The record is a 76-nucleotide sequence from Saimiri boliviensis, which matches "mir-1290 microRNA precursor family" in Rfam. Pairs were carried over by alignment from the consensus structure, which was predicted with RNAalifold.
RNA sequence: GAGCAUCAUGUUAAUGCUCAAAAAGGUUCAGAUUUUGGAGCAUUUUAGAUUUUGGAUUUUCGGAUUAGGGAUGCUC
Numbered sequence: 001g002a003g004c005a006u007c008a009u010g011u012u013a014a015u016g017c018u019c020a021a022a023a024a025g026g027u028u029c030a031g032a033u034u035u036u037g038g039a040g041c042a043u044u045u046u047a048g049a050u051u052u053u054g055g056a057u058u059u060u061c062g063g064a065u066u067a068g069g070g071a072u073g074c075u076c
Stems, first nucleotide, its partner, number of pairs: 001076007011068004018063002021060004027056006034049006
The organism belongs to Saimiri boliviensis, within Eukaryota.